[Rfam]
RNA: Alphaproteobacteria transfer-messenger RNA
Organism: Pseudorhodobacter sp. MZDSW-24AT
RNA sequence: GGGCUUGUGACGCGAAAGCUCCCCCCCUAUAUUGAUCCUGUUCGGGGCAACCCGGACUAUGGUGAUAAACGCACCUGUAAUAGACGGCUCGGACCCGGGGGCGGUACCCGGCGACUCCACCAAAUCACCCGUUCGUUUCGGGGGCUCGGGGUCGAAAUAGGAUCGACGAACGUUCAAAGAGGCCAGCUUUCACUCGGUGAGGUACCACCGUAAUCGGUCCAAAUGUACAGUUGCAAACGACAACCGUGCUCCGGUGGCUCUGGCUGCGUAAGCAGUUCGAACACCGAAACUUAAGCCCUUGCGCUUAGCCGCGUAAGGCGGGGUUCGCAGGUACCUGGCAACAGAAACCUGCACC
Numbered sequence: 001g002g003g004c005u006u007g008u009g010a011c012g013c014g015a016a017a018g019c020u021c022c023c024c025c026c027c028u029a030u031a032u033u034g035a036u037c038c039u040g041u042u043c044g045g046g047g048c049a050a051c052c053c054g055g056a057c058u059a060u061g062g063u064g065a066u067a068a069a070c071g072c073a074c075c076u077g078u079a080a081u082a083g084a085c086g087g088c089u090c091g092g093a094c095c096c097g098g099g100g101g102c103g104g105u106a107c108c109c110g111g112c113g114a115c116u117c118c119a120c121c122a123a124a125u126c127a128c129c130c131g132u133u134c135g136u137u138u139c140g141g142g143g144g145c146u147c148g149g150g151g152u153c154g155a156a157a158u159a160g161g162a163u164c165g166a167c168g169a170a171c172g173u174u175c176a177a178a179g180a181g182g183c184c185a186g187c188u189u190u191c192a193c194u195c196g197g198u199g200a201g202g203u204a205c206c207a208c209c210g211u212a213a214u215c216g217g218u219c220c221a222a223a224u225g226u227a228c229a230g231u232u233g234c235a236a237a238c239g240a241c242a243a244c245c246g247u248g249c250u251c252c253g254g255u256g257g258c259u260c261u262g263g264c265u266g267c268g269u270a271a272g273c274a275g276u277u278c279g280a281a282c283a284c285c286g287a288a289a290c291u292u293a294a295g296c297c298c299u300u301g302c303g304c305u306u307a308g309c310c311g312c313g314u315a316a317g318g319c320g321g322g323g324u325u326c327g328c329a330g331g332u333a334c335c336u337g338g339c340a341a342c343a344g345a346a347a348c349c350u351g352c353a354c355c
Stems, first nucleotide, its partner, number of pairs: 040057007061194005071187002074182003085172002089169003095111005112154007195210004201220002204218003321336004327352006
Dot-bracket structure: .......................................(((((((....)))))))...(((((.....((.(((........((..(((...(((((.......)))))(((((((.............................)))))))............))).)).......)))...))..)))))((((..[[.[[[)))).....]]]]]....................................................................................................[[[[..((((((]]]]..........))))))...